Rfam assigns this 85-nucleotide RNA sequence from Salinicola sp. MIT1003 to the family "Fluoride riboswitch aptamer (crcB RNA motif)". The organism belongs to Salinicola, within Bacteria. The base pairs follow the family's consensus structure, which is taken from published work.
[Rfam]
RNA sequence: CUUGCCGUGGGAGAUGGCAUUCCUCCCGAGCGGCCUUCUCGUUCGCUCGAACCACCGUCUAUCGGUUAAUGAUGCCUGCGGGCGC
Numbered sequence: 001c002u003u004g005c006c007g008u009g010g011g012a013g014a015u016g017g018c019a020u021u022c023c024u025c026c027c028g029a030g031c032g033g034c035c036u037u038c039u040c041g042u043u044c045g046c047u048c049g050a051a052c053c054a055c056c057g058u059c060u061a062u063c064g065g066u067u068a069a070u071g072a073u074g075c076c077u078g079c080g081g082g083c084g085c
Stems, first nucleotide, its partner, number of pairs: 010026004016076006054066004